[Rfam]
RNA: Flavo-1 RNA
RNA sequence: UUUUUGCGUUAGGGAUUGGAAUGGCAUCCUUUUUAUGCUAAAGUAAAGUCUCUAUUUCUUACCAGAAAUAAAAUUAUUUAAUGGAUAAUAACAAAAUUCUCUAAUAUUACUGCAUAAAAAGAUAUAAUGGAAAGCCCGACCUUUG
Numbered sequence: 001u002u003u004u005u006g007c008g009u010u011a012g013g014g015a016u017u018g019g020a021a022u023g024g025c026a027u028c029c030u031u032u033u034u035a036u037g038c039u040a041a042a043g044u045a046a047a048g049u050c051u052c053u054a055u056u057u058c059u060u061a062c063c064a065g066a067a068a069u070a071a072a073a074u075u076a077u078u079u080a081a082u083g084g085a086u087a088a089u090a091a092c093a094a095a096a097u098u099c100u101c102u103a104a105u106a107u108u109a110c111u112g113c114a115u116a117a118a119a120a121g122a123u124a125u126a127a128u129g130g131a132a133a134g135c136c137c138g139a140c141c142u143u144u145g
Stems, first nucleotide, its partner, number of pairs: 012137003016133002021128002026123003032118007